[Rfam]
RNA sequence: CUUCAGCGACCCCAGCCACAACGGGCGGCCCGCCUCGCGGUCCUGUCCGUAGACGGCCAGCAGCGCCUGUGCCUC
Numbered sequence: 001c002u003u004c005a006g007c008g009a010c011c012c013c014a015g016c017c018a019c020a021a022c023g024g025g026c027g028g029c030c031c032g033c034c035u036c037g038c039g040g041u042c043c044u045g046u047c048c049g050u051a052g053a054c055g056g057c058c059a060g061c062a063g064c065g066c067c068u069g070u071g072c073c074u075c
Stems, first nucleotide, its partner, number of pairs: 016024002031071003038065002043060003047056003
Rfam assigns this 75-nucleotide sequence from Streptomyces qinzhouensis to the family "ASpks TB sRNA". The family's RNA type in Rfam is antisense RNA. The source organism's lineage runs through Bacteria, Bacillati, Actinomycetes, Kitasatosporales and Streptomyces.